Annotation
The record is a 356-nucleotide RNA sequence from Devosia sp. A8/3-2, which matches "Alphaproteobacteria transfer-messenger RNA" in Rfam.
Nucleotides: 356
Base pairs, nucleotide, nucleotide: 040051041050042049043048055188056187057186058185059184066181067180068178069177070176071175080167081166082165084164085163086162090106091105092104093103094102107149108148109147110146111145112144113143189204190203191202192201195214196213198212199211200210324337325336326335329353330352331351332350333349334348
Number, partner (000 for none) and nucleotide at each position: 001000a002000c003000g004000a005000u006000u007000g008000c009000a010000u011000c012000g013000c014000c015000g016000g017000c018000c019000a020000c021000c022000a023000g024000c025000g026000c027000c028000u029000a030000u031000a032000u033000a034000g035000a036000a037000a038000u039000u040051g041050c042049u043048c044000g045000c046000a047000a048043g049042a050041g051040c052000u053000a054000u055188g056187g057186c058185g059184a060000u061000a062000a063000a064000c065000u066181g067180u068178c069177a070176u071175c072000g073000u074000a075000a076000u077000a078000a079000a080167c081166c082165u083000u084164u085163c086162g087000g088000a089000c090106c091105c092104g093103g094102g095000g096000g097000c098000a099000g100000u101000a102094c103093c104092c105091g106090g107149c108148g109147c110146c111145u112144c113143c114000a115000c116000c117000a118000u119000c120000u121000a122000g123000c124000c125000c126000u127000u128000c129000a130000g131000g132000g133000g134000c135000c136000a137000g138000c139000c140000a141000a142000u143113g144112g145111g146110g147109g148108c149107g150000a151000a152000a153000c154000a155000g156000g157000a158000u159000c160000g161000a162086c163085g164084a165082g166081g167080g168000c169000g170000u171000a172000a173000a174000g175071g176070g177069u178068g179000u180067g181066c182000u183000u184059u185058u186057g187056c188055u189204c190203g191202g192201u193000g194000a195214g196213g197000u198212a199211c200210c201192a202191c203190c204189g205000u206000u207000a208000u209000c210200g211199g212198u213196c214195c215000a216000a217000a218000a219000c220000u221000u222000a223000u224000a225000g226000u227000u228000g229000c230000a231000a232000a233000u234000g235000a236000c237000a238000a239000c240000c241000a242000u243000a244000a245000g246000g247000c248000u249000c250000c251000a252000g253000u254000c255000g256000c257000u258000c259000u260000c261000g262000c263000c264000g265000c266000g267000u268000a269000a270000g271000c272000g273000g274000u275000g276000c277000u278000a279000g280000c281000a282000u283000u284000g285000g286000g287000a288000a289000a290000u291000u292000a293000a294000g295000u296000c297000c298000u299000c300000c301000g302000c303000u304000c305000c306000u307000a308000g309000c310000c311000g312000g313000g314000c315000g316000a317000c318000a319000g320000g321000c322000g323000g324337g325336g326335u327000c328000c329353g330352c331351a332350g333349g334348c335326a336325c337324c338000g339000g340000c341000a342000a343000c344000a345000g346000a347000a348334g349333c350332c351331u352330g353329c354000a355000c356000u
Record summary: Lineage of the source: Bacteria > Pseudomonadati > Pseudomonadota > Devosiaceae > Devosia. It is annotated as a non-coding RNA gene. Clan: tRNA clan.